Background:
The record is an 82-nucleotide RNA from Cohnella nanjingensis, which matches "ZMP/ZTP riboswitch aptamer (pfl RNA motif)" in Rfam. Pairs were carried over by alignment from the consensus structure, which is taken from published work. It scores 58 bits against the family's covariance model.
[Rfam]
RNA sequence: ACGACUGCGCGUGACUGGCGGAGCAUGGGGAACCAUGAGGGAGCGCGCGGAUAUGCGGUAGCCGUACGCCUGGGCAGAGGUA
Numbered sequence: 001a002c003g004a005c006u007g008c009g010c011g012u013g014a015c016u017g018g019c020g021g022a023g024c025a026u027g028g029g030g031a032a033c034c035a036u037g038a039g040g041g042a043g044c045g046c047g048c049g050g051a052u053a054u055g056c057g058g059u060a061g062c063c064g065u066a067c068g069c070c071u072g073g074g075c076a077g078a079g080g081u082a
Base pairs, nucleotide, nucleotide: 003052005050006049007048008047009046010045011044012043015040016039017070018069019068020067025036026035027034028033059077061075062074063073